Rfam assigns this 100-nucleotide RNA from Potentilla centigrana to the family "Plastid-psbA-1 3UTR RNA". The organism belongs to Potentilla, within Eukaryota. Pairs were carried over by alignment from the consensus structure, which was predicted with LocARNA. By type it is a cis-regulatory element.
RNA sequence: AAAGUAACUAAUAUUUUUUUAGUUAAAGUAACUAAAGUAAAUAGUAAAGGAGCAACACCAAAUCUCUUGAUAUAACAAGAGAUUUGGUGUUGCUCCUUUA
Number, nucleotide and partner (000 for none) at each position: 001a000002a000003a000004g000005u000006a000007a000008c000009u000010a000011a000012u000013a000014u000015u000016u000017u000018u000019u000020u000021a000022g000023u000024u000025a000026a000027a000028g000029u000030a000031a000032c000033u000034a000035a000036a000037g000038u000039a000040a000041a000042u000043a000044g000045u000046a099047a098048a097049g096050g095051a094052g093053c092054a091055a090056c089057a088058c087059c000060a085061a084062a083063u000064c081065u080066c079067u078068u077069g000070a000071u000072a000073u000074a000075a000076c000077a068078a067079g066080a065081g064082a000083u062084u061085u060086g000087g058088u057089g056090u055091u054092g053093c052094u051095c050096c049097u048098u047099u046100a000